[Rfam]
RNA sequence: GCUGAGCUUGGUAAUGUGAGCUUGUAACCCAUAUGGGGGCAACAAAGUGGUUGGAGGUUGGCUCAACCCAUUGGUUAGGGUUGUUGGAGUUGUUCUCUGGCCUGUCCAUUCCAAGGAGGGAGUUGGGUCAUGGGCUUUGGUCGAAGGCCCAGUGUCUAUUGUCUUUAGAGGUUGGAGGAAACCGCGUGAGGCUGGCUUCACAGAGCAGCGUAACCUUCCGCUCCUGUCGGUGGAAGGAUAGCAGGCCAGUUCUCCUAGGCUCGAUAUUAACCUCUGGGUAGUCCUCAGCCUGACAUUACACUUUU
Numbered sequence: 001g002c003u004g005a006g007c008u009u010g011g012u013a014a015u016g017u018g019a020g021c022u023u024g025u026a027a028c029c030c031a032u033a034u035g036g037g038g039g040c041a042a043c044a045a046a047g048u049g050g051u052u053g054g055a056g057g058u059u060g061g062c063u064c065a066a067c068c069c070a071u072u073g074g075u076u077a078g079g080g081u082u083g084u085u086g087g088a089g090u091u092g093u094u095c096u097c098u099g100g101c102c103u104g105u106c107c108a109u110u111c112c113a114a115g116g117a118g119g120g121a122g123u124u125g126g127g128u129c130a131u132g133g134g135c136u137u138u139g140g141u142c143g144a145a146g147g148c149c150c151a152g153u154g155u156c157u158a159u160u161g162u163c164u165u166u167a168g169a170g171g172u173u174g175g176a177g178g179a180a181a182c183c184g185c186g187u188g189a190g191g192c193u194g195g196c197u198u199c200a201c202a203g204a205g206c207a208g209c210g211u212a213a214c215c216u217u218c219c220g221c222u223c224c225u226g227u228c229g230g231u232g233g234a235a236g237g238a239u240a241g242c243a244g245g246c247c248a249g250u251u252c253u254c255c256u257a258g259g260c261u262c263g264a265u266a267u268u269a270a271c272c273u274c275u276g277g278g279u280a281g282u283c284c285u286c287a288g289c290c291u292g293a294c295a296u297u298a299c300a301c302u303u304u305u
Base pairs, nucleotide, nucleotide: 001040002039003038004023005022006021007020008019009018010017028037029036030035044304045303046302047301048300049299050297052295053294056291057290058288059287060286061284064281066279068277069276070275073272074271075270076269077268078262079261080260081258082257083256087254088253089252092250097249098248099247100246101245102244103243104242105241106237107236109235110234111233112232113231115228116227118225119224120223121222122221123220125164126163127162128161130159131158132157133156134155135154137152138151139150140149142147165170174219175218176217177216178215184211185210186209187208192203193202194201